[Rfam]
RNA sequence: GAGUCUAGCAUCUAUGCGAGUGUUUGGGUGAUGAAAACCAUCCGCGAAAUGAAGUGAAUGCAGGUGGGACCGUCCUUUUUGUGGCGCGCACCACCGACCGACCUGGAAGUUUUUACUGGAAAGGUUGAGUAAGAGCAUAGCUGUUGGGACCGAAAGAUGGUGAACUAUGCCUGAAUAGGGUGAAGCCAGAGAAACUCUGGUGGAGGCUCGUAGAGAUUCUGACGUGCAAUCGAUCUUCAAAUUUGGGUAUAGGGCGAAAGACUAAUCGAACCAUCUAGUAGCUGGUU
Numbered sequence: 001g002a003g004u005c006u007a008g009c010a011u012c013u014a015u016g017c018g019a020g021u022g023u024u025u026g027g028g029u030g031a032u033g034a035a036a037a038c039c040a041u042c043c044g045c046g047a048a049a050u051g052a053a054g055u056g057a058a059u060g061c062a063g064g065u066g067g068g069a070c071c072g073u074c075c076u077u078u079u080u081g082u083g084g085c086g087c088g089c090a091c092c093a094c095c096g097a098c099c100g101a102c103c104u105g106g107a108a109g110u111u112u113u114u115a116c117u118g119g120a121a122a123g124g125u126u127g128a129g130u131a132a133g134a135g136c137a138u139a140g141c142u143g144u145u146g147g148g149a150c151c152g153a154a155a156g157a158u159g160g161u162g163a164a165c166u167a168u169g170c171c172u173g174a175a176u177a178g179g180g181u182g183a184a185g186c187c188a189g190a191g192a193a194a195c196u197c198u199g200g201u202g203g204a205g206g207c208u209c210g211u212a213g214a215g216a217u218u219c220u221g222a223c224g225u226g227c228a229a230u231c232g233a234u235c236u237u238c239a240a241a242u243u244u245g246g247g248u249a250u251a252g253g254g255c256g257a258a259a260g261a262c263u264a265a266u267c268g269a270a271c272c273a274u275c276u277a278g279u280a281g282c283u284g285g286u287u
Base pairs, nucleotide, nucleotide: 005147006146007145008144009143010142012140013139014138015137016136017135020045021044022043025040026039027038029036049055050054063095064094065093066092067091071086072085073084074083097130098129099127100126101125102123104121108117109116150285151284152282156275157274158273159272160271161270165252166251167250168249169248170247171246172245173244174243175242176240178209179208180207181206185201186200187199188198189197190196191195213237214236215235216234218233219232221231222230253263254262